[Rfam]
RNA sequence: CGGUUAAAAAGCUCGUAGUUGGAUCUCGGUUUCGGGCGGGUGGUGCACCUUGCGGUGUUUACUGUCUGCCCGGACGAUUUUGCUAGUUCGUUCAUGGUGCUCUUAACCGGGUGCCUUGAGUGGCUAGCACGUUUACUUUGAAAAAAUUGGAGUGCUCAAAGCAGGCGCUACAGCCUGAACAUUCGUGCAUGGAAUAAUGGAAUAGGACCUCGGUUCUAUUUCGUUGGCUUUCGGAGUCGAGGUAAUGAUUAAUAGGGACAGACGGGGCAUUCGUACUGCGACGUUAGAGGUGAAAUUCUUGGAUCGUCGCAAGACGAACUACUGCGAAAGCAUUUGCCAAGAAUGUUUUCAUUAAUCAAGAACGAAAGUUAGAGGUUCGAAGGCGAUCAGAUACCGCCCUAGUUCUAACCAUAAACGAUGUCGACUGGCGAUCCGUCUCCGUUAACUGAAUGACUAGACGGGCAGCCUCCGGGAAACCAAAGUGUUUGGAUUCUGGGGGAAGUAUGGUUGCAAAGCUGAAACUUAAAGGAAU
Numbered sequence: 001c002g003g004u005u006a007a008a009a010a011g012c013u014c015g016u017a018g019u020u021g022g023a024u025c026u027c028g029g030u031u032u033c034g035g036g037c038g039g040g041u042g043g044u045g046c047a048c049c050u051u052g053c054g055g056u057g058u059u060u061a062c063u064g065u066c067u068g069c070c071c072g073g074a075c076g077a078u079u080u081u082g083c084u085a086g087u088u089c090g091u092u093c094a095u096g097g098u099g100c101u102c103u104u105a106a107c108c109g110g111g112u113g114c115c116u117u118g119a120g121u122g123g124c125u126a127g128c129a130c131g132u133u134u135a136c137u138u139u140g141a142a143a144a145a146a147u148u149g150g151a152g153u154g155c156u157c158a159a160a161g162c163a164g165g166c167g168c169u170a171c172a173g174c175c176u177g178a179a180c181a182u183u184c185g186u187g188c189a190u191g192g193a194a195u196a197a198u199g200g201a202a203u204a205g206g207a208c209c210u211c212g213g214u215u216c217u218a219u220u221u222c223g224u225u226g227g228c229u230u231u232c233g234g235a236g237u238c239g240a241g242g243u244a245a246u247g248a249u250u251a252a253u254a255g256g257g258a259c260a261g262a263c264g265g266g267g268c269a270u271u272c273g274u275a276c277u278g279c280g281a282c283g284u285u286a287g288a289g290g291u292g293a294a295a296u297u298c299u300u301g302g303a304u305c306g307u308c309g310c311a312a313g314a315c316g317a318a319c320u321a322c323u324g325c326g327a328a329a330g331c332a333u334u335u336g337c338c339a340a341g342a343a344u345g346u347u348u349u350c351a352u353u354a355a356u357c358a359a360g361a362a363c364g365a366a367a368g369u370u371a372g373a374g375g376u377u378c379g380a381a382g383g384c385g386a387u388c389a390g391a392u393a394c395c396g397c398c399c400u401a402g403u404u405c406u407a408a409c410c411a412u413a414a415a416c417g418a419u420g421u422c423g424a425c426u427g428g429c430g431a432u433c434c435g436u437c438u439c440c441g442u443u444a445a446c447u448g449a450a451u452g453a454c455u456a457g458a459c460g461g462g463c464a465g466c467c468u469c470c471g472g473g474a475a476a477c478c479a480a481a482g483u484g485u486u487u488g489g490a491u492u493c494u495g496g497g498g499g500a501a502g503u504a505u506g507g508u509u510g511c512a513a514a515g516c517u518g519a520a521a522c523u524u525a526a527a528g529g530a531a532u
Base pairs, nucleotide, nucleotide: 001495002494003493009492011363013361014360018356019355020354255350256349257348258347259345260344263341266338267337268336269335272316273315277311278310279309280308281307282306283305287298288297289296324331325330368409369408370407371406372405373404378402382398383397384396385395420491421490422489424483425482427467428466429465432462433461434460435459436458437457438456441454442453443452471478472477497524498523499522506517507516508515509514
The record is a 532-nucleotide part of an RNA from Orchesella cincta, which matches "Eukaryotic small subunit ribosomal RNA" in Rfam.
Taxonomically the source falls in Orchesella (Eukaryota, Panarthropoda, Entomobryoidea, Orchesellidae).
On this family, see Yusupov et al., Science 2001: "Crystal structure of the ribosome at 5.5 A resolution".